S10-Clostridia ribosomal protein leader: a 112-nucleotide RNA from bacterium 1XD8-76. A search with the family's covariance model found it, with a score of 71 bits. A reference for the family is Eckert and Weinberg (2020), "Discovery of 20 novel ribosomal leader candidates in bacteria and archaea", BMC Microbiol.
RNA sequence: UGAUAGCGAUGAAGCGUGAGGUUGCUGUCAGCGGGUAACUACUGACAGGUUUUCCGUGGAGCGAAUGUCAAACCGGAAGAUCAGAGAUCUCCGGUAAGGAAACUGACGACAA
Number, nucleotide and partner (000 for none) at each position: 001u000002g000003a000004u000005a000006g000007c000008g000009a000010u000011g000012a000013a000014g057015c056016g055017u000018g054019a053020g052021g051022u000023u000024g000025c048026u047027g046028u045029c044030a043031g042032c000033g000034g000035g000036u000037a000038a000039c000040u000041a000042c031043u030044g029045a028046c027047a026048g025049g000050u000051u021052u020053u019054c018055c016056g015057u014058g000059g000060a000061g000062c000063g000064a000065a000066u111067g110068u109069c108070a000071a000072a095073c094074c093075g092076g091077a090078a000079g000080a000081u000082c000083a000084g000085a000086g000087a000088u000089c000090u077091c076092c075093g074094g073095u072096a000097a000098g000099g000100a000101a000102a000103c000104u000105g000106a000107c000108g069109a068110c067111a066112a000